[Rfam]
RNA sequence: CCUAGGGCUGCGCCCUAGGCUAAAUUGUGUUGCGCCUUCAGCGCA
Numbered sequence: 001c002c003u004a005g006g007g008c009u010g011c012g013c014c015c016u017a018g019g020c021u022a023a024a025u026u027g028u029g030u031u032g033c034g035c036c037u038u039c040a041g042c043g044c045a
Stems, first nucleotide, its partner, number of pairs: 001019008032044004
A member of the RNA family "Acido-Lenti-1 RNA" from Pontiella desulfatans, 45 nucleotides long. The family's RNA type in Rfam is small RNA. The match comes from Rfam's covariance-model search (44 bits).